[Rfam]
RNA sequence: CGGCAACAGUGAUGAGAGGAGUUGUGGCUGUAGGUAACGUCUCGUUACGGCAUGGAGACACCAGUCCCUCUAACCUGACGUUGCCG
Numbered sequence: 001c002g003g004c005a006a007c008a009g010u011g012a013u014g015a016g017a018g019g020a021g022u023u024g025u026g027g028c029u030g031u032a033g034g035u036a037a038c039g040u041c042u043c044g045u046u047a048c049g050g051c052a053u054g055g056a057g058a059c060a061c062c063a064g065u066c067c068c069u070c071u072a073a074c075c076u077g078a079c080g081u082u083g084c085c086g
Base pairs, nucleotide, nucleotide: 001086002085003084004083005082006081007080
RNA: Small nucleolar RNA SNORD127